Source information:
A member of the RNA family "Small nucleolar RNA SNORD63" from Pangasianodon hypophthalmus, 69 nucleotides long. On this family, see Galardi et al., Mol Cell Biol 2002: "Purified box C/D snoRNPs are able to reproduce site-specific 2'-O-methylation of target RNA in vitro". The source organism's lineage runs through Eukaryota, Metazoa, Osteoglossocephalai, Ostariophysi and Pangasianodon. Gene Ontology terms of the family: nucleolus and RNA processing. The family's consensus secondary structure was predicted with PFOLD.

RNA sequence: AUGCUGGGAUGAACCUAAUUCAACACAUCAUUCUUACUGUCAAGUGAAGAAACUUUAACACUGAGCAUC
Numbered sequence: 001a002u003g004c005u006g007g008g009a010u011g012a013a014c015c016u017a018a019u020u021c022a023a024c025a026c027a028u029c030a031u032u033c034u035u036a037c038u039g040u041c042a043a044g045u046g047a048a049g050a051a052a053c054u055u056u057a058a059c060a061c062u063g064a065g066c067a068u069c
Base pairs, nucleotide, nucleotide: 001068002067003066004065